The family of this 165-nucleotide RNA sequence from Menura novaehollandiae is "U1 spliceosomal RNA". Taxonomically the source falls in Menura (Eukaryota, Sarcopterygii, Aves, Neoaves). About the family: U1 is a small nuclear RNA (snRNA) component of the spliceosome (involved in pre-mRNA splicing). It is annotated as a spliceosomal small nuclear RNA. The match comes from Rfam's covariance-model search (72 bits). The family's consensus secondary structure is taken from published work.
[Rfam]
RNA sequence: GUAUUCAUCUGACAGGGGAAACACUAUCAUCAGACAGGUGGCUUUUUUUAGGGCGAGGCUUAUUUUUUGUGGUCUGGGUGUGCUGACCCCUGCGAUUUCUUCAAAUGGGGGAAACUGAACUACAUAAUUUGUGAUAGGAGGCGACUGCGUUCGCGCUCUCCCUUG
Number, nucleotide and partner (000 for none) at each position: 001g000002u000003a000004u000005u000006c000007a000008u000009c000010u000011g000012a000013c000014a121015g120016g049017g048018g047019a046020a045021a044022c000023a043024c041025u040026a039027u038028c000029a000030u000031c000032a000033g000034a000035c000036a000037g000038g027039u026040g025041g024042c000043u023044u021045u020046u019047u018048u017049u016050a091051g090052g089053g088054c000055g087056a000057g084058g083059c082060u000061u080062a079063u078064u077065u076066u000067u000068u000069g000070u000071g000072g000073u000074c000075u000076g065077g064078g063079u062080g061081u000082g059083c058084u057085g000086a000087c055088c053089c052090c051091u050092g000093c000094g000095a116096u114097u112098u111099c000100u110101u109102c000103a000104a000105a000106u000107g000108g000109g101110g100111g098112a097113a000114a096115c000116u095117g000118a000119a000120c015121u014122a000123c000124a000125u000126a000127a000128u000129u000130u000131g000132u000133g000134a000135u000136a000137g000138g164139a163140g162141g161142c000143g000144a159145c000146u000147g156148c155149g154150u000151u000152c000153g000154c149155g148156c147157u000158c000159u144160c000161c141162c140163u139164u138165g000